[Rfam]
RNA: Small nucleolar RNA SNORA77
RNA sequence: GCAGACUCACUCUGUACUGAACUGCAGUCUUCAGUUCAGGUGCUUUUCCUGUCUGCAAGAGUAGUGGCUCACAGGAGUGACAACUGCCUUCUUCCUUGUAGGAGGCUGUUACAACAGCUGUUGCGACAUUGCU
Numbered sequence: 001g002c003a004g005a006c007u008c009a010c011u012c013u014g015u016a017c018u019g020a021a022c023u024g025c026a027g028u029c030u031u032c033a034g035u036u037c038a039g040g041u042g043c044u045u046u047u048c049c050u051g052u053c054u055g056c057a058a059g060a061g062u063a064g065u066g067g068c069u070c071a072c073a074g075g076a077g078u079g080a081c082a083a084c085u086g087c088c089u090u091c092u093u094c095c096u097u098g099u100a101g102g103a104g105g106c107u108g109u110u111a112c113a114a115c116a117g118c119u120g121u122u123g124c125g126a127c128a129u130u131g132c133u
Stems, first nucleotide, its partner, number of pairs: 001056006014043004018038003022034003069123001071121004077115002082110001086106004